[Rfam]
RNA sequence: CUCUGUCUCUCUAUCUAGACUCAGGGCAGAAAGAG
Dot-bracket structure: (((((..(((......)))..))))).........
A member of the RNA family "L31-Firmicutes ribosomal protein leader" from Geotrypetes seraphini, 35 nucleotides long. It scores 35 bits against the family's covariance model. Taxonomically the source falls in Geotrypetes (Eukaryota, Craniata, Vertebrata, Gymnophiona). On this family, see Eckert and Weinberg, BMC Microbiol 2020: "Discovery of 20 novel ribosomal leader candidates in bacteria and archaea". The family is grouped with related families in Rfam's "Ribosomal Protein L31 Leader clan". By type it is a cis-regulatory leader.